[Rfam]
RNA sequence: CGCCUAAAUUCUCCAGGCGGAGCUCGACCGCCAAGGCAUGUGAUGGUCGACUGCAUUCAUCAUCAACGCGACGUCUACGGUGACGAGUCGAUUUGCAAGAUUUGCCGAUCCUGUCG
Numbered sequence: 001c002g003c004c005u006a007a008a009u010u011c012u013c014c015a016g017g018c019g020g021a022g023c024u025c026g027a028c029c030g031c032c033a034a035g036g037c038a039u040g041u042g043a044u045g046g047u048c049g050a051c052u053g054c055a056u057u058c059a060u061c062a063u064c065a066a067c068g069c070g071a072c073g074u075c076u077a078c079g080g081u082g083a084c085g086a087g088u089c090g091a092u093u094u095g096c097a098a099g100a101u102u103u104g105c106c107g108a109u110c111c112u113g114u115c116g
Stems, first nucleotide, its partner, number of pairs: 016032005078116005090110001092108002095105004
RNA: ALIL pseudoknot
Organism: Salinisphaera japonica